[Rfam]
RNA sequence: GGACUUUCACUUUCGCUCCCGCAUCCCUAUAUUAGGGGUGUCGGGCUUGCUCGACUAUGGCGAUAAACGCCUUGCGGAAUAAGCGUUGCGGACCCGGGGGCGGUACCCGGCGCCUCCACCAUCAUGGGGGCGAAUCAGGAUCGACGUGCGUGGUAAAGGCAUGGUUUUCGCUCGGCAUGGUUCCGCCGUUAUCGGGCCGUUUCAUAGGUGCCAACGAUAAUUCGGCGCCUGCUCUUCGCAUGGCCGCCUAAUACCCUCAACGGGGUAUUAGCGGAAAGCUAAGAACGGGGUUCGGGGGGCACCCGGCAACAGAAGCCCCCCACU
Numbered sequence: 001g002g003a004c005u006u007u008c009a010c011u012u013u014c015g016c017u018c019c020c021g022c023a024u025c026c027c028u029a030u031a032u033u034a035g036g037g038g039u040g041u042c043g044g045g046c047u048u049g050c051u052c053g054a055c056u057a058u059g060g061c062g063a064u065a066a067a068c069g070c071c072u073u074g075c076g077g078a079a080u081a082a083g084c085g086u087u088g089c090g091g092a093c094c095c096g097g098g099g100g101c102g103g104u105a106c107c108c109g110g111c112g113c114c115u116c117c118a119c120c121a122u123c124a125u126g127g128g129g130g131c132g133a134a135u136c137a138g139g140a141u142c143g144a145c146g147u148g149c150g151u152g153g154u155a156a157a158g159g160c161a162u163g164g165u166u167u168u169c170g171c172u173c174g175g176c177a178u179g180g181u182u183c184c185g186c187c188g189u190u191a192u193c194g195g196g197c198c199g200u201u202u203c204a205u206a207g208g209u210g211c212c213a214a215c216g217a218u219a220a221u222u223c224g225g226c227g228c229c230u231g232c233u234c235u236u237c238g239c240a241u242g243g244c245c246g247c248c249u250a251a252u253a254c255c256c257u258c259a260a261c262g263g264g265g266u267a268u269u270a271g272c273g274g275a276a277a278g279c280u281a282a283g284a285a286c287g288g289g290g291u292u293c294g295g296g297g298g299g300c301a302c303c304c305g306g307c308a309a310c311a312g313a314a315g316c317c318c319c320c321c322a323c324u
Stems, first nucleotide, its partner, number of pairs: 040055005059172005069165003073161003084150003088147003094110005111132007173188004178199003182196003288304004294321006
RNA: Alphaproteobacteria transfer-messenger RNA
Organism: Nitrospirillum viridazoti